[Rfam]
RNA sequence: GGUCAGAUGAUGAGACCUAAAACAGUCAGCCGUUGGUGGAUGGUUACACACCUAUAAAUAACCUA
Numbered sequence: 001g002g003u004c005a006g007a008u009g010a011u012g013a014g015a016c017c018u019a020a021a022a023c024a025g026u027c028a029g030c031c032g033u034u035g036g037u038g039g040a041u042g043g044u045u046a047c048a049c050a051c052c053u054a055u056a057a058a059u060a061a062c063c064u065a
Stems, first nucleotide, its partner, number of pairs: 001017004009027003035052004
Shown here is a 65-nucleotide sequence, a member of the family "GP20-b RNA". Rfam's curators put it in the seed alignment. Rfam classes the family as a cis-regulatory element.